[Rfam]
RNA sequence: UUAAAUCAACAUACAGGAGGACAAAACGAUGGCUAUUGUAGGUACUAUCAUUAAAAUCAUCAAAGCAAUUAUCGACAUUUUCGCAAAAUAAUUUAAGCGAAUUGAAUACUUAAAAUUCUCAGGCCACUAUACCAAUAGGGAUGGUGGCUUUGCUUU
Numbered sequence: 001u002u003a004a005a006u007c008a009a010c011a012u013a014c015a016g017g018a019g020g021a022c023a024a025a026a027c028g029a030u031g032g033c034u035a036u037u038g039u040a041g042g043u044a045c046u047a048u049c050a051u052u053a054a055a056a057u058c059a060u061c062a063a064a065g066c067a068a069u070u071a072u073c074g075a076c077a078u079u080u081u082c083g084c085a086a087a088a089u090a091a092u093u094u095a096a097g098c099g100a101a102u103u104g105a106a107u108a109c110u111u112a113a114a115a116u117u118c119u120c121a122g123g124c125c126a127c128u129a130u131a132c133c134a135a136u137a138g139g140g141a142u143g144g145u146g147g148c149u150u151u152g153c154u155u156u
Stems, first nucleotide, its partner, number of pairs: 028049005034044003062156007072105004080101005122149009132139002
Description:
Shown here is a 156-nucleotide RNA sequence from Staphylococcus aureus, a member of the family "Staphylococcus sRNA sau-41". A reference for the family is Abu-Qatouseh et al. (2010), "Identification of differentially expressed small non-protein-coding RNAs in Staphylococcus aureus displaying both the normal and the small-colony variant phenotype", J Mol Med (Berl). It is annotated as a small RNA. The sequence is in the family's curated seed alignment. The base pairs follow the family's consensus structure, which was predicted with mfold.